[Rfam]
Record summary
Shown here is a 69-nucleotide sequence from Centropus unirufus, a member of the family "Small nucleolar RNA SNORD26". For this family Rfam cites "A small nucleolar RNA requirement for site-specific ribose methylation of rRNA in Xenopus" (Tycowski et al., Proc Natl Acad Sci U S A, 1996). Taxonomically the source falls in Centropus (Eukaryota, Dipnotetrapodomorpha, Coelurosauria, Otidimorphae).

RNA sequence: CCGCGGGGAUGAGAAGCGGAACUCUCUCUUUCCGAUCGCUGUGGGGAAAUUCCCAGAUUUCUGAGCGGC
Dot-bracket structure: ((((............................................................)))).
Numbered sequence: 001c002c003g004c005g006g007g008g009a010u011g012a013g014a015a016g017c018g019g020a021a022c023u024c025u026c027u028c029u030u031u032c033c034g035a036u037c038g039c040u041g042u043g044g045g046g047a048a049a050u051u052c053c054c055a056g057a058u059u060u061c062u063g064a065g066c067g068g069c
Stems, first nucleotide, its partner, number of pairs: 001068004